The family of this 126-nucleotide sequence from Granulosicoccus antarcticus is "Group II catalytic intron D1-D4-2".
A reference for the family is Bonen and Vogel (2001), "The ins and outs of group II introns", Trends Genet.
NCBI's taxonomy places the organism under Bacteria, Pseudomonadota, Granulosicoccaceae, Granulosicoccus, Granulosicoccus antarcticus.
The match comes from Rfam's covariance-model search (88 bits).

RNA sequence: GGAGGAAUUAAGGCCCUCCGGAGUCUGCCUACAGGGGCUGGCUUCAAACCACCGUUGAGCGGCAUUAGCUGAAGACUGUUGUCGUGAGCGUCAAGGGAAAAAGCGUACCCAUGUGGUGCGUCAGGU
Numbered sequence: 001g002g003a004g005g006a007a008u009u010a011a012g013g014c015c016c017u018c019c020g021g022a023g024u025c026u027g028c029c030u031a032c033a034g035g036g037g038c039u040g041g042c043u044u045c046a047a048a049c050c051a052c053c054g055u056u057g058a059g060c061g062g063c064a065u066u067a068g069c070u071g072a073a074g075a076c077u078g079u080u081g082u083c084g085u086g087a088g089c090g091u092c093a094a095g096g097g098a099a100a101a102a103g104c105g106u107a108c109c110c111a112u113g114u115g116g117u118g119c120g121u122c123a124g125g126u
Base pairs, nucleotide, nucleotide: 001019002018003017004016005015020045021044022043023042024041025040027038028037029036030035050125052097053096055094056093057092058091059085060084062082063081064080066078067077068076103121104120105119106118107117